[Rfam]
RNA sequence: GCGGUACCGGUUCACGCCCGUCAGGGCGACCCGGCGACC
Numbered sequence: 001g002c003g004g005u006a007c008c009g010g011u012u013c014a015c016g017c018c019c020g021u022c023a024g025g026g027c028g029a030c031c032c033g034g035c036g037a038c039c
Stems, first nucleotide, its partner, number of pairs: 003039003007034004015028005
The record is a 39-nucleotide RNA, which matches "L31-Actinobacteria ribosomal protein leader" in Rfam. It is annotated as a cis-regulatory leader. A reference for the family is Eckert and Weinberg (2020), "Discovery of 20 novel ribosomal leader candidates in bacteria and archaea", BMC Microbiol.